[Rfam]
RNA sequence: AGUAGCAAAGGUCGGAAAGGCUCCCGACACACUCACAAGAGUACCUGAGAUGAUGGAUACGCCGCCCAUCUUGUUACU
Numbered sequence: 001a002g003u004a005g006c007a008a009a010g011g012u013c014g015g016a017a018a019g020g021c022u023c024c025c026g027a028c029a030c031a032c033u034c035a036c037a038a039g040a041g042u043a044c045c046u047g048a049g050a051u052g053a054u055g056g057a058u059a060c061g062c063c064g065c066c067c068a069u070c071u072u073g074u075u076a077c078u
Stems, first nucleotide, its partner, number of pairs: 001078008011028005019063003030047001031042004052070005
This 78-nucleotide RNA sequence belongs to the Rfam family "skipping-rope RNA". The sequence is in the family's curated seed alignment.